Shown here is a 271-nucleotide sequence from Paenibacillaceae bacterium GAS479, a member of the family "BsrG". The literature on the family includes a 2008 paper in Gene by Saito et al., "Novel small RNA-encoding genes in the intergenic regions of Bacillus subtilis". It is annotated as a small RNA. Rfam describes the family as follows. bsrE, bsrG and bsrH pair through intermolecular interactions with antisense sRNAs. They form type I toxin/antitoxin system that includes an mRNA encoding for a short, toxic peptide (bsrE, bsrG and bsrH) and an antitoxin that is comprised of an antisense RNA. bsrG encodes a 39-amino-acid toxin, and the 180 nucleotide antisense sRNA called SR4 acts as the antitoxin (they overlap by 123 nucleotides). SR4 interaction with the 3'UTR of bsrG RNA promotes bsrG degradation and inhibits its translation. The match comes from Rfam's covariance-model search (65 bits).
RNA sequence: GCACAUAGAACGGCUUGCAAGGGCGGUUGGCUACCUCUCCGAGAAGGGAGGGAUGCCCAUGGAGGUUAAAGAUGCUUUGACGUUAAUGAUCGGUUUUAGUGCGCUUAUAGUAGCGAUGCUGACGCUGGUUGUUGCCAUCAUUGCAGUGAUUAACCAAAAGAAAUAGACCGCCCAUCUGCUAGGAUAACGGUCUAUUUCUGAUCGCAAUUCUGAAGCCGACCGCCUUUGAAGCGGUCUACUGUGCCGGAGGAGUCGUGUUGACGCACGGCUC
Numbered sequence: 001g002c003a004c005a006u007a008g009a010a011c012g013g014c015u016u017g018c019a020a021g022g023g024c025g026g027u028u029g030g031c032u033a034c035c036u037c038u039c040c041g042a043g044a045a046g047g048g049a050g051g052g053a054u055g056c057c058c059a060u061g062g063a064g065g066u067u068a069a070a071g072a073u074g075c076u077u078u079g080a081c082g083u084u085a086a087u088g089a090u091c092g093g094u095u096u097u098a099g100u101g102c103g104c105u106u107a108u109a110g111u112a113g114c115g116a117u118g119c120u121g122a123c124g125c126u127g128g129u130u131g132u133u134g135c136c137a138u139c140a141u142u143g144c145a146g147u148g149a150u151u152a153a154c155c156a157a158a159a160g161a162a163a164u165a166g167a168c169c170g171c172c173c174a175u176c177u178g179c180u181a182g183g184a185u186a187a188c189g190g191u192c193u194a195u196u197u198c199u200g201a202u203c204g205c206a207a208u209u210c211u212g213a214a215g216c217c218g219a220c221c222g223c224c225u226u227u228g229a230a231g232c233g234g235u236c237u238a239c240u241g242u243g244c245c246g247g248a249g250g251a252g253u254c255g256u257g258u259u260g261a262c263g264c265a266c267g268g269c270u271c
Stems, first nucleotide, its partner, number of pairs: 001244005008236001010235001011218006018178001019175001021173003025168001027166002032053001034052002037050004061123001064120003075088001099114002188200003220234004250271009